[Rfam]
RNA sequence: AUUGCAAAGUUGAGGCUAUAGCAGAAAUGCUCACACUGGACCUGUCAGAUUCCAACAAAUCUGUGAAUUCUACU
Numbered sequence: 001a002u003u004g005c006a007a008a009g010u011u012g013a014g015g016c017u018a019u020a021g022c023a024g025a026a027a028u029g030c031u032c033a034c035a036c037u038g039g040a041c042c043u044g045u046c047a048g049a050u051u052c053c054a055a056c057a058a059a060u061c062u063g064u065g066a067a068u069u070c071u072a073c074u
Stems, first nucleotide, its partner, number of pairs: 014042002016039002020074002023071004027037001046063006
RNA: Mammalian CPEB3 ribozyme
Organism: Crocodylus porosus